[Rfam]
RNA sequence: GGGAAUAAUGGAUGCGAGGGAACUCGGCCAAAUAGCUCCGUAUCUUAGGUAGAAGGAGUGCCUAUCCCGUGAUGGAAUAGGUCGCAGUGGCAAGGGGACCCCGACUGUUUACCAAAAACACAGACCGCUGCUAGUCCGUAAGGAUGUGUAUAGCGAUUGAAACCUGCCCAGUGUUGGUACCUGAAAGCCUCGUUCAAGAGGAAGAAGGGCCAAUAAACGGCGGGGGUAACUAUGACCCUCUUAAGGUAGCGUAAUACCUAGCCGCUUAAUUGGCGGCUUGCAUGAAGGUUCAACGAGAGUCCCACUGUCCCCGCAUUCAGCCCCGUGAAAUUGAUGUACUGGUGCACAAUCCAGUCU
Numbered sequence: 001g002g003g004a005a006u007a008a009u010g011g012a013u014g015c016g017a018g019g020g021a022a023c024u025c026g027g028c029c030a031a032a033u034a035g036c037u038c039c040g041u042a043u044c045u046u047a048g049g050u051a052g053a054a055g056g057a058g059u060g061c062c063u064a065u066c067c068c069g070u071g072a073u074g075g076a077a078u079a080g081g082u083c084g085c086a087g088u089g090g091c092a093a094g095g096g097g098a099c100c101c102c103g104a105c106u107g108u109u110u111a112c113c114a115a116a117a118a119c120a121c122a123g124a125c126c127g128c129u130g131c132u133a134g135u136c137c138g139u140a141a142g143g144a145u146g147u148g149u150a151u152a153g154c155g156a157u158u159g160a161a162a163c164c165u166g167c168c169c170a171g172u173g174u175u176g177g178u179a180c181c182u183g184a185a186a187g188c189c190u191c192g193u194u195c196a197a198g199a200g201g202a203a204g205a206a207g208g209g210c211c212a213a214u215a216a217a218c219g220g221c222g223g224g225g226g227u228a229a230c231u232a233u234g235a236c237c238c239u240c241u242u243a244a245g246g247u248a249g250c251g252u253a254a255u256a257c258c259u260a261g262c263c264g265c266u267u268a269a270u271u272g273g274c275g276g277c278u279u280g281c282a283u284g285a286a287g288g289u290u291c292a293a294c295g296a297g298a299g300u301c302c303c304a305c306u307g308u309c310c311c312c313g314c315a316u317u318c319a320g321c322c323c324c325g326u327g328a329a330a331u332u333g334a335u336g337u338a339c340u341g342g343u344g345c346a347c348a349a350u351c352c353a354g355u356c357u
Stems, first nucleotide, its partner, number of pairs: 001324003009319008018310003035059005044049001060082006067075002083087001095303005101297001102295002106120003123158002126155005131148001134145004161290004166221003171218002173214005180209003188201004222240006241245001261277006338355005
RNA: Archaeal large subunit ribosomal RNA, nucleotides 1722 to 2078
Organism: Thermoplasmatales archaeon B_DKE